[Rfam]
RNA sequence: GCCACAUGAUGAUAUGAGUAGAUGCAGCAGCUUCCGGGCCGUGAUGACCUGCUAUCUAUCACCCUUACCUGAUGGCU
Numbered sequence: 001g002c003c004a005c006a007u008g009a010u011g012a013u014a015u016g017a018g019u020a021g022a023u024g025c026a027g028c029a030g031c032u033u034c035c036g037g038g039c040c041g042u043g044a045u046g047a048c049c050u051g052c053u054a055u056c057u058a059u060c061a062c063c064c065u066u067a068c069c070u071g072a073u074g075g076c077u
Base pairs, nucleotide, nucleotide: 001076002075003074004073030039031038032037

A member of the RNA family "Small nucleolar RNA SNORD83" from Xiphophorus maculatus, 77 nucleotides long. The family's RNA type in Rfam is C/D-box small nucleolar RNA. A search with the family's covariance model found it, with a score of 40 bits.